[Rfam]
RNA sequence: UCUAGUUGCUAAAGGGUAAUUCAAAUUUUACAUAUCAGAACCAUAACUGAUUAAGUACUAGAUCUUUCAUAGAAGUUAUAUGUACCAGAUAUAAUAUUAGUUGAAUACAUAAGAACAACAAUAAAGACAUGGAAUGUCGUAAAAUAAAACGUACUUUGCUGGUCUUGUGUACAAUAUACUAAUUGCAAGAGUUUAAGAUAUAAAAAUAUGGGAUAAUACUAAUCAUACUGGUACUAUGGUUAGUAUUUU
Numbered sequence: 001u002c003u004a005g006u007u008g009c010u011a012a013a014g015g016g017u018a019a020u021u022c023a024a025a026u027u028u029u030a031c032a033u034a035u036c037a038g039a040a041c042c043a044u045a046a047c048u049g050a051u052u053a054a055g056u057a058c059u060a061g062a063u064c065u066u067u068c069a070u071a072g073a074a075g076u077u078a079u080a081u082g083u084a085c086c087a088g089a090u091a092u093a094a095u096a097u098u099a100g101u102u103g104a105a106u107a108c109a110u111a112a113g114a115a116c117a118a119c120a121a122u123a124a125a126g127a128c129a130u131g132g133a134a135u136g137u138c139g140u141a142a143a144a145u146a147a148a149a150c151g152u153a154c155u156u157u158g159c160u161g162g163u164c165u166u167g168u169g170u171a172c173a174a175u176a177u178a179c180u181a182a183u184u185g186c187a188a189g190a191g192u193u194u195a196a197g198a199u200a201u202a203a204a205a206a207u208a209u210g211g212g213a214u215a216a217u218a219c220u221a222a223u224c225a226u227a228c229u230g231g232u233a234c235u236a237u238g239g240u241u242a243g244u245a246u247u248u249u
Base pairs, nucleotide, nucleotide: 001062002061003060004059005058006057034051035050036049037048038047041211042210043209044208045207064191065190066189067188075095076094077093078092079091080090081089082234083233084232085231086230087229088228096183097182098181099180100179101178215247216246217245218244219243220242221241222240223239224238225237226236227235
The family of this 249-nucleotide RNA sequence is "FuFi-1 RNA".